Overview
The record is a 176-nucleotide RNA sequence from Danionella cerebrum, which matches "Small nucleolar RNA SNORD97" in Rfam. For this family Rfam cites "Identification of 13 novel human modification guide RNAs" (Vitali et al., Nucleic Acids Res, 2003). It scores 48 bits against the family's covariance model. Pairs were carried over by alignment from the consensus structure, which was predicted with WAR. Rfam links the family to the GO terms nucleolus and RNA processing. Lineage of the source: Eukaryota > Eumetazoa > Craniata > Cypriniformes > Danionella.
Nucleotides: 176
Base pairs, nucleotide, nucleotide: 001176002175003174004173005170006169036086037085038084039083
Number, partner (000 for none) and nucleotide at each position: 001176g002175c003174a004173c005170c006169c007000u008000a009000u010000g011000a012000u013000u014000a015000u016000a017000a018000a019000a020000a021000a022000g023000a024000c025000g026000c027000g028000u029000u030000a031000u032000u033000c034000u035000g036086a037085g038084g039083g040000a041000u042000c043000c044000c045000a046000c047000u048000g049000g050000a051000u052000g053000g054000c055000u056000g057000u058000c059000u060000u061000c062000a063000u064000u065000c066000u067000c068000u069000g070000a071000c072000u073000u074000u075000u076000a077000a078000u079000c080000u081000u082000u083039c084038u085037c086036u087000u088000u089000u090000u091000u092000a093000c094000c095000u096000c097000u098000u099000u100000c101000u102000u103000a104000u105000g106000c107000c108000u109000c110000u111000g112000u113000c114000c115000c116000a117000u118000c119000c120000u121000u122000c123000a124000a125000u126000c127000u128000u129000u130000a131000c132000u133000g134000c135000c136000a137000g138000c139000c140000a141000g142000u143000c144000c145000g146000c147000u148000g149000a150000a151000u152000g153000u154000g155000a156000u157000u158000a159000u160000g161000a162000g163000a164000u165000a166000u167000g168000a169006g170005g171000a172000a173004g174003u175002g176001c